The record is a 116-nucleotide sequence from Anabaena sp. 90, which matches "c-di-AMP riboswitch aptamer (ydaO/yuaA leader)" in Rfam. Taxonomically the source falls in Anabaena (Bacteria, Bacillati, Cyanophyceae, Nostocaceae). This family represents a conserved RNA structure found upstream of the ydaO and yuaA genes in Bacillus subtilis and related genes in other bacteria. The ydaO/yuaA element is thought to act as a genetic 'off' switch for the ydaO and yuaA genes in its native state. It is believed that the element may be triggered during osmotic shock leading to activation of ydaO, a predicted amino acid transporter gene, and members of the yuaA-yubG operon which code for KtrA and KtrB K+ transporters. The pairing is the family consensus, mapped onto this sequence.
[Rfam]
RNA sequence: AAUUCAUGAAAGCUGAAUUUGAAGCGGAGGAACCAAGUAUUUGGGGCUAAUCUUAUGAGAGACACCUUCCAGUCUUAGCCCGUCAGCUAACUCCGUCGGCAAUGGAAGGAACCUCC
Number, nucleotide and partner (000 for none) at each position: 001a000002a000003u000004u000005c000006a000007u000008g000009a000010a000011a000012g100013c099014u098015g000016a000017a000018u023019u000020u000021g000022a000023a018024g096025c095026g094027g093028a092029g091030g000031a000032a000033c000034c043035a042036a000037g000038u000039a000040u000041u000042u035043g034044g081045g080046g079047c000048u000049a000050a000051u000052c059053u058054u000055a000056u000057g000058a053059g052060a075061g074062a073063c072064a000065c000066c000067u000068u000069c000070c000071a000072g063073u062074c061075u060076u000077a000078g000079c046080c045081c044082g000083u000084c000085a000086g000087c000088u000089a000090a000091c029092u028093c027094c026095g025096u024097c000098g014099g013100c012101a000102a000103u000104g000105g000106a000107a000108g000109g000110a000111a000112c000113c000114u000115c000116c000